[Rfam]
RNA sequence: UUUGCGGAAGCCGAAAAGCACACAGAGUAGGCA
Numbered sequence: 001u002u003u004g005c006g007g008a009a010g011c012c013g014a015a016a017a018g019c020a021c022a023c024a025g026a027g028u029a030g031g032c033a
Base pairs, nucleotide, nucleotide: 003020004019005018010032011031012030
The family of this 33-nucleotide sequence is "DUF805b RNA". The family's RNA type in Rfam is cis-regulatory element. Pairs were carried over by alignment from the consensus structure, which is taken from published work.